The family of this 119-nucleotide sequence from Ancylostoma duodenale is "U5 spliceosomal RNA". The match comes from Rfam's covariance-model search (80 bits).
RNA sequence: AUCUCUGGCUCCCUUGCAUUUGACCAAGAAAAUCUUUCGCCUUUUACUAAAGAUUUCCGUGCAAAGGUGCAUUUUAUGAGUAUCAGAUAAUUUUUGGAAUCCCCUCGAAAGAGCGGGAU
Numbered sequence: 001a002u003c004u005c006u007g008g009c010u011c012c013c014u015u016g017c018a019u020u021u022g023a024c025c026a027a028g029a030a031a032a033u034c035u036u037u038c039g040c041c042u043u044u045u046a047c048u049a050a051a052g053a054u055u056u057c058c059g060u061g062c063a064a065a066g067g068u069g070c071a072u073u074u075u076a077u078g079a080g081u082a083u084c085a086g087a088u089a090a091u092u093u094u095u096g097g098a099a100u101c102c103c104c105u106c107g108a109a110a111g112a113g114c115g116g117g118a119u
Stems, first nucleotide, its partner, number of pairs: 003080003008070002011067002014064005030056008098119001100118004105113001
Taxonomically the source falls in Ancylostoma (Eukaryota, Opisthokonta, Metazoa, Rhabditida). For this family Rfam cites "The spliceosomal snRNAs of Caenorhabditis elegans" (Thomas et al., Nucleic Acids Res, 1990). The base pairs follow the family's consensus structure, which is taken from published work.